[Rfam]
RNA sequence: GCCGUCGAGGGGUGCUGCAGCGGACGCCGUCCGCCACGCUCGAUGUGCGAAUCCGUCGCAAGGGCGCCCUUUCCGC
Numbered sequence: 001g002c003c004g005u006c007g008a009g010g011g012g013u014g015c016u017g018c019a020g021c022g023g024a025c026g027c028c029g030u031c032c033g034c035c036a037c038g039c040u041c042g043a044u045g046u047g048c049g050a051a052u053c054c055g056u057c058g059c060a061a062g063g064g065c066g067c068c069c070u071u072u073c074c075g076c
Stems, first nucleotide, its partner, number of pairs: 003045006021033005
This 76-nucleotide RNA sequence from Rhodanobacter thiooxydans belongs to the Rfam family "SAH (S-adenosyl-L-homocysteine) riboswitch aptamer". On this family, see Wang et al., Mol Cell 2008: "Riboswitches that sense S-adenosylhomocysteine and activate genes involved in coenzyme recycling". Lineage of the source: Bacteria > Pseudomonadota > Gammaproteobacteria > Lysobacterales > Rhodanobacter. Pairs were carried over by alignment from the consensus structure, which is taken from published work.